[Rfam]
RNA sequence: CUGCAGCCAAUUAAGCCGACUGUGCUCUUUUCCCACGGGGCCCGGUGUGGUGUGCCUGCAAACAGCAGCCUCCUUGGUGGUCUAUACAGCCUGUUGAUUGUAUGGGUUGCCCUAAGGGACCUUGGAUACAGCC
Numbered sequence: 001c002u003g004c005a006g007c008c009a010a011u012u013a014a015g016c017c018g019a020c021u022g023u024g025c026u027c028u029u030u031u032c033c034c035a036c037g038g039g040g041c042c043c044g045g046u047g048u049g050g051u052g053u054g055c056c057u058g059c060a061a062a063c064a065g066c067a068g069c070c071u072c073c074u075u076g077g078u079g080g081u082c083u084a085u086a087c088a089g090c091c092u093g094u095u096g097a098u099u100g101u102a103u104g105g106g107u108u109g110c111c112c113u114a115a116g117g118g119a120c121c122u123u124g125g126a127u128a129c130a131g132c133c
Base pairs, nucleotide, nucleotide: 004049005048019046020045021044022043025040026039027038028037076121077120078119087109088108089107090106091105092104
RNA: Small nucleolar RNA SNORA70
Organism: Panthera tigris